[Rfam]
Shown here is a 115-nucleotide sequence from Anabarilius grahami, a member of the family "U5 spliceosomal RNA".
The match comes from Rfam's covariance-model search (51 bits).
It is annotated as a spliceosomal small nuclear RNA.
RNA sequence: GGUCGCAGUUUCUCUUAAUUCGCGCAUAAAUCAUUUGCCUGUUACUAAAGAGUUCCGUGGAGGGGAACAUUUGCAAGUUUCUGGUAUUUUUGGGUGCUCUGCUCACAGCAGAGCU
Dot-bracket structure: ..(.((.(((((((((.(.........((.((.((...........)).)).))...).)))))))))....)).).................(.((((((.......)))))))
Numbered sequence: 001g002g003u004c005g006c007a008g009u010u011u012c013u014c015u016u017a018a019u020u021c022g023c024g025c026a027u028a029a030a031u032c033a034u035u036u037g038c039c040u041g042u043u044a045c046u047a048a049a050g051a052g053u054u055c056c057g058u059g060g061a062g063g064g065g066a067a068c069a070u071u072u073g074c075a076a077g078u079u080u081c082u083g084g085u086a087u088u089u090u091u092g093g094g095u096g097c098u099c100u101g102c103u104c105a106c107a108g109c110a111g112a113g114c115u
Stems, first nucleotide, its partner, number of pairs: 003076001005074002008068009018058001028054002031051002034048002094115001096114006